This 125-nucleotide RNA sequence from Danionella cerebrum belongs to the Rfam family "Small nucleolar RNA SNORA71". The organism belongs to Danionella, within Eukaryota.

[Rfam]
RNA sequence: CCCUGUGUCGAAAGUGAGUAUGGGGUGCAUGUCCCCAGCUUAUUGAUUACACAGGUAGAGCAAUAGAAGGAGAUUCCCGUGCUCGCUGGAGACCGUUUUCAGAUGAGCCCUAAAGCCUUCUUACA
Numbered sequence: 001c002c003c004u005g006u007g008u009c010g011a012a013a014g015u016g017a018g019u020a021u022g023g024g025g026u027g028c029a030u031g032u033c034c035c036c037a038g039c040u041u042a043u044u045g046a047u048u049a050c051a052c053a054g055g056u057a058g059a060g061c062a063a064u065a066g067a068a069g070g071a072g073a074u075u076c077c078c079g080u081g082c083u084c085g086c087u088g089g090a091g092a093c094c095g096u097u098u099u100c101a102g103a104u105g106a107g108c109c110c111u112a113a114a115g116c117c118u119u120c121u122u123a124c125a
Stems, first nucleotide, its partner, number of pairs: 002055007013044007022036004063122001065121006081108005086102005
The members of this family belong to the H/ACA class of snoRNAs which bind a number of proteins (including dyskerin, Gar1p and Nop10p) to form snoRNP complexes. This class of snoRNAs are thought to guide the sites of modification of uridines to pseudouridines by forming direct base pairing interactions with substrate RNAs. This family includes U71 (SNORA71), ACA39 (SNORA39) and ACA60 (SNORA60). U71 and ACA60 are predicted to guide the pseudouridylation of U406 and U1004 in 18S rRNA respectively. The family's consensus secondary structure was predicted with PFOLD. Rfam links the family to the GO terms nucleolus and RNA processing. The literature on the family includes a 1997 paper in Genes Dev by Ganot et al., "The family of box ACA small nucleolar RNAs is defined by an evolutionarily conserved secondary structure and ubiquitous sequence elements essential for RNA accumulation".